[Rfam]
mir-50 microRNA precursor family: a 79-nucleotide sequence from Bursaphelenchus xylophilus. The match comes from Rfam's covariance-model search (53 bits). The source organism's lineage runs through Eukaryota, Eumetazoa, Tylenchina, Tylenchomorpha and Bursaphelenchus.
RNA sequence: CCGACUCUGAUAUGUCUAGUAUUCUUGGGUUCUAGAUUCCUUUAGAGGCAACCCUAAUGCUGGGCAUAUCGGAGGCAGU
Numbered sequence: 001c002c003g004a005c006u007c008u009g010a011u012a013u014g015u016c017u018a019g020u021a022u023u024c025u026u027g028g029g030u031u032c033u034a035g036a037u038u039c040c041u042u043u044a045g046a047g048g049c050a051a052c053c054c055u056a057a058u059g060c061u062g063g064g065c066a067u068a069u070c071g072g073a074g075g076c077a078g079u
Stems, first nucleotide, its partner, number of pairs: 008071015028053004